[Rfam]
RNA sequence: AUGCACCACGGCAAUGGAUUCUGCCGGGCCACAUGGCCGAACCGCCCUUCGGGCUGAUGAUUCCUACCUUUUG
Numbered sequence: 001a002u003g004c005a006c007c008a009c010g011g012c013a014a015u016g017g018a019u020u021c022u023g024c025c026g027g028g029c030c031a032c033a034u035g036g037c038c039g040a041a042c043c044g045c046c047c048u049u050c051g052g053g054c055u056g057a058u059g060a061u062u063c064c065u066a067c068c069u070u071u072u073g
Stems, first nucleotide, its partner, number of pairs: 010025004016064003020060002044054003
Fluoride riboswitch aptamer (crcB RNA motif): a 73-nucleotide RNA from Methylobacterium sp. Leaf399. The base pairs follow the family's consensus structure, which is taken from published work. It scores 48 bits against the family's covariance model. The organism belongs to Methylobacterium, within Bacteria.